[Rfam]
RNA sequence: UACUGUUUGUGAUGAUUAAUUCAAAGCAAUGGGAAUCUCUCUGAAAGAGACUGAGGAGGACUCUUGUGCUGAAACAGUA
Numbered sequence: 001u002a003c004u005g006u007u008u009g010u011g012a013u014g015a016u017u018a019a020u021u022c023a024a025a026g027c028a029a030u031g032g033g034a035a036u037c038u039c040u041c042u043g044a045a046a047g048a049g050a051c052u053g054a055g056g057a058g059g060a061c062u063c064u065u066g067u068g069c070u071g072a073a074a075c076a077g078u079a
Stems, first nucleotide, its partner, number of pairs: 001079007
RNA: Small nucleolar RNA SNORD79